[Rfam]
RNA sequence: GGCUAGGUAAUGAGGUUCUGUUCUCUGAAUAUAAUGUGGAGUGCAUGCUUUAAUGGUCUUCAAAGUUCUCUGAUUGCC
Numbered sequence: 001g002g003c004u005a006g007g008u009a010a011u012g013a014g015g016u017u018c019u020g021u022u023c024u025c026u027g028a029a030u031a032u033a034a035u036g037u038g039g040a041g042u043g044c045a046u047g048c049u050u051u052a053a054u055g056g057u058c059u060u061c062a063a064a065g066u067u068c069u070c071u072g073a074u075u076g077c078c
Base pairs, nucleotide, nucleotide: 001078002077003076005074

Annotation: Small nucleolar RNA R160: a 78-nucleotide sequence from Protea cynaroides. snoR160 is a C/D box small nucleolar RNA, which acts as a methylation guide for 25S ribosomal RNA in plants. snoR160 has been alternatively named snoZ270 in rice. Rfam classes the family as a C/D-box small nucleolar RNA. A reference for the family is Chen et al. (2003), "The high diversity of snoRNAs in plants: identification and comparative study of 120 snoRNA genes from Oryza sativa", Nucleic Acids Res. Taxonomically the source falls in Protea (Eukaryota, Viridiplantae, Proteales, Proteaceae). Gene Ontology terms of the family: nucleolus and RNA processing. The pairing is the family consensus, mapped onto this sequence.